[Rfam]
RNA sequence: AGGACAGGCCUUUCAGGCAUCCUCUCCCAAAACUUCCAAGGCCCGGUCGGCAACGACCGGGCCUUUUUUUCGCCCGGC
Numbered sequence: 001a002g003g004a005c006a007g008g009c010c011u012u013u014c015a016g017g018c019a020u021c022c023u024c025u026c027c028c029a030a031a032a033c034u035u036c037c038a039a040g041g042c043c044c045g046g047u048c049g050g051c052a053a054c055g056a057c058c059g060g061g062c063c064u065u066u067u068u069u070u071c072g073c074c075c076g077g078c
Stems, first nucleotide, its partner, number of pairs: 008018004040063009

Makes More Granules Regulator RNA (mmgR): a 78-nucleotide RNA sequence from Novosphingobium sp. Rfam classes the family as a small RNA. Taxonomically the source falls in Novosphingobium (Bacteria, Pseudomonadota, Alphaproteobacteria, Sphingomonadaceae). The match comes from Rfam's covariance-model search (56 bits). Its family is annotated with response to nitrogen compound, DNA-templated transcription, termination and protein binding in the Gene Ontology. The pairing is the family consensus, mapped onto this sequence.